[Rfam]
RNA: mir-8834 microRNA precursor family
RNA sequence: AGGAGGAACCACCACAGUGGCGGCGGCCAGCUCUGGAGCCCUGGAUUCAGCUCCCACAGUAACUACAGAGCUCUCAGUCUUCAGCGGCCUGGAUGCUCCGGGGCGUG
Numbered sequence: 001a002g003g004a005g006g007a008a009c010c011a012c013c014a015c016a017g018u019g020g021c022g023g024c025g026g027c028c029a030g031c032u033c034u035g036g037a038g039c040c041c042u043g044g045a046u047u048c049a050g051c052u053c054c055c056a057c058a059g060u061a062a063c064u065a066c067a068g069a070g071c072u073c074u075c076a077g078u079c080u081u082c083a084g085c086g087g088c089c090u091g092g093a094u095g096c097u098c099c100g101g102g103g104c105g106u107g
Base pairs, nucleotide, nucleotide: 002099003098004097005096007094009091012087013086019079020078021077023075025074026073029072030071031070032069033068034067035066037064041059042058043057
Dot-bracket structure: .((((.(.(..((.....(((.(.((..(((((((.(...(((.............)))....).)))))))))).)))......))...)..).))))........